Source information: Shown here is a 76-nucleotide RNA from Owenia fusiformis, a member of the family "Small nucleolar RNA SNORD24". For this family Rfam cites "U24, a novel intron-encoded small nucleolar RNA with two 12 nt long, phylogenetically conserved complementarities to 28S rRNA" (Qu et al., Nucleic Acids Res, 1995). It scores 43 bits against the family's covariance model. By type it is a C/D-box small nucleolar RNA. The family has 14 seed sequences and 2,843 matches in Rfam 15.1.
RNA sequence: UUGUAAUGAUGAUGACAAUAUUUGCUAUCUGAGAUUUGCUGAUGUAAAGCAAUCUACCACUAAGAUCUCUGAGCAA
Numbered sequence: 001u002u003g004u005a006a007u008g009a010u011g012a013u014g015a016c017a018a019u020a021u022u023u024g025c026u027a028u029c030u031g032a033g034a035u036u037u038g039c040u041g042a043u044g045u046a047a048a049g050c051a052a053u054c055u056a057c058c059a060c061u062a063a064g065a066u067c068u069c070u071g072a073g074c075a076a
Base pairs, nucleotide, nucleotide: 001076002075003074004073